[Rfam]
Annotation
The family of this 107-nucleotide RNA sequence from Sphingobacterium wenxiniae is "SAM riboswitch aptamer (S box leader)". The match comes from Rfam's covariance-model search (75 bits). NCBI's taxonomy places the organism under Bacteria, Bacteroidota, Sphingobacteriales, Sphingobacteriaceae, Sphingobacterium. The literature on the family includes a 2006 paper in Nature by Montange and Batey, "Structure of the S-adenosylmethionine riboswitch regulatory mRNA element". Rfam describes the family as follows. The SAM riboswitch is found upstream of a number of genes which code for proteins involved in methionine or cysteine biosynthesis in Gram-positive bacteria.
RNA sequence: CGCUUAUAGAGAAAGGCAGAGGGAAUAGACCCGCUGAAGCCUUAGCAACCUGACACAAGGUCAAGGUGCUACGUUCUACUCAAUAGAAAAGUUGGGAAAGAUAAGCU
Numbered sequence: 001c002g003c004u005u006a007u008a009g010a011g012a013a014a015g016g017c018a019g020a021g022g023g024a025a026u027a028g029a030c031c032c033g034c035u036g037a038a039g040c041c042u043u044a045g046c047a048a049c050c051u052g053a054c055a056c057a058a059g060g061u062c063a064a065g066g067u068g069c070u071a072c073g074u075u076c077u078a079c080u081c082a083a084u085a086g087a088a089a090a091g092u093u094g095g096g097a098a099a100g101a102u103a104a105g106c107u
Base pairs, nucleotide, nucleotide: 002106003105004104005103006102007101013043014042015041016040017039021032022031023030026078027077028076029075044070045069046068047067049066050065051063052062053061054060074099079096080095081094082093083092084091